[Rfam]
RNA sequence: GUGCAGACCUUUUCUAGCUAGGCUCAGCCUGCAGUGGCUGCAUCCUUUCCUGUAGUGUCUGCUAGAGAGAUGUGAGGCUGUUUGAGGCCCUGCUGUGGCUCUGCACGGCAGGGUUAUAGGUAAACCUCCGACACUU
Numbered sequence: 001g002u003g004c005a006g007a008c009c010u011u012u013u014c015u016a017g018c019u020a021g022g023c024u025c026a027g028c029c030u031g032c033a034g035u036g037g038c039u040g041c042a043u044c045c046u047u048u049c050c051u052g053u054a055g056u057g058u059c060u061g062c063u064a065g066a067g068a069g070a071u072g073u074g075a076g077g078c079u080g081u082u083u084g085a086g087g088c089c090c091u092g093c094u095g096u097g098g099c100u101c102u103g104c105a106c107g108g109c110a111g112g113g114u115u116a117u118a119g120g121u122a123a124a125c126c127u128c129c130g131a132c133a134c135u136u
Stems, first nucleotide, its partner, number of pairs: 003062006020046003025040005074128004088113006095106003

Small nucleolar RNA SNORA9: a 136-nucleotide RNA from Collichthys lucidus. Rfam classes the family as an H/ACA-box small nucleolar RNA. Rfam describes the family as follows. ACA9 is a member of the H/ACA class of snoRNA that guide the sites of modification of uridines to pseudouridines. Taxonomically the source falls in Collichthys (Eukaryota, Vertebrata, Gnathostomata, Acanthomorphata). Pairs were carried over by alignment from the consensus structure, which was predicted with PFOLD. Gene Ontology terms of the family: nucleolus and RNA processing.